[Rfam]
RNA sequence: ACAACAUUGGUUCCGUCGGUCUACUGAGCCAUAUUAUUCGCUCGGUAGAAGAUCUUCUCUUUGUCAC
Numbered sequence: 001a002c003a004a005c006a007u008u009g010g011u012u013c014c015g016u017c018g019g020u021c022u023a024c025u026g027a028g029c030c031a032u033a034u035u036a037u038u039c040g041c042u043c044g045g046u047a048g049a050a051g052a053u054c055u056u057c058u059c060u061u062u063g064u065c066a067c
Stems, first nucleotide, its partner, number of pairs: 004064003010058001015053003020049010
mir-2774 microRNA precursor family: a 67-nucleotide sequence from Bombyx mori. The organism belongs to Bombyx, within Eukaryota. Its family is annotated with RISC complex and miRNA-mediated post-transcriptional gene silencing in the Gene Ontology. The literature on the family includes a 2010 paper in BMC Genomics by Liu et al., "MicroRNAs of Bombyx mori identified by Solexa sequencing".